[Rfam]
RNA sequence: UUGUUUCCUCGAACCGCACUGCGGAGCCACCAUAUGCAAAAUUCUUGUAUAUAGCUCUGAGGAAGGUCCCUGGAUCCUUGGCAGAAAGUGCCAUAGCAUUACUGCUAUUAGCCUCCAUCGUAUUCUCAUUAUGGAUAGGACGUCAAUGAAAUAUUGUAUUUUAAUGUAAAUUAAAUUACUUUAUUUCUAAGACUGAUCUGUGAGAUUGAUGUGAGUGUAUUGAUCAAAGUAAAGUAAUGUGUGUAAUUUGUUUGUAAUGUGCUAACAUUGUAAUACAAAUUAAUGAUCCUAGUGAAUAACACAACAGGGCCUAUUCCGAGGAAACU
Numbered sequence: 001u002u003g004u005u006u007c008c009u010c011g012a013a014c015c016g017c018a019c020u021g022c023g024g025a026g027c028c029a030c031c032a033u034a035u036g037c038a039a040a041a042u043u044c045u046u047g048u049a050u051a052u053a054g055c056u057c058u059g060a061g062g063a064a065g066g067u068c069c070c071u072g073g074a075u076c077c078u079u080g081g082c083a084g085a086a087a088g089u090g091c092c093a094u095a096g097c098a099u100u101a102c103u104g105c106u107a108u109u110a111g112c113c114u115c116c117a118u119c120g121u122a123u124u125c126u127c128a129u130u131a132u133g134g135a136u137a138g139g140a141c142g143u144c145a146a147u148g149a150a151a152u153a154u155u156g157u158a159u160u161u162u163a164a165u166g167u168a169a170a171u172u173a174a175a176u177u178a179c180u181u182u183a184u185u186u187c188u189a190a191g192a193c194u195g196a197u198c199u200g201u202g203a204g205a206u207u208g209a210u211g212u213g214a215g216u217g218u219a220u221u222g223a224u225c226a227a228a229g230u231a232a233a234g235u236a237a238u239g240u241g242u243g244u245a246a247u248u249u250g251u252u253u254g255u256a257a258u259g260u261g262c263u264a265a266c267a268u269u270g271u272a273a274u275a276c277a278a279a280u281u282a283a284u285g286a287u288c289c290u291a292g293u294g295a296a297u298a299a300c301a302c303a304a305c306a307g308g309g310c311c312u313a314u315u316c317c318g319a320g321g322a323a324a325c326u
Base pairs, nucleotide, nucleotide: 003325004324005323006322007321008320009319010318011317015243016242017241018240019239022059023058024057025056026055027054036048037047038046039045064312065311066310068309069308070307071306080092081091082090083089093108094107095106096105097104098103110216116211117210118209119208120207124205125204126203127202132200133199134198135197184192185191186190246297247296248295249294250293251292
RNA: RNase MRP
Organism: Microctonus aethiopoides